[Rfam]
RNA: tRNA
RNA sequence: GUCUCGGUAGUCUAAAGGCUUAGGACGUUUGCACGGAAUGCAAGAGAUCCGGGUUCGACUCCCGGCCGAAGCA
Numbered sequence: 001g002u003c004u005c006g007g008u009a010g011u012c013u014a015a016a017g018g019c020u021u022a023g024g025a026c027g028u029u030u031g032c033a034c035g036g037a038a039u040g041c042a043a044g045a046g047a048u049c050c051g052g053g054u055u056c057g058a059c060u061c062c063c064g065g066c067c068g069a070a071g072c073a
Base pairs, nucleotide, nucleotide: 001072002071004069005068006067007066010026011025012024013023028044029043030042031041032040049065050064051063052062053061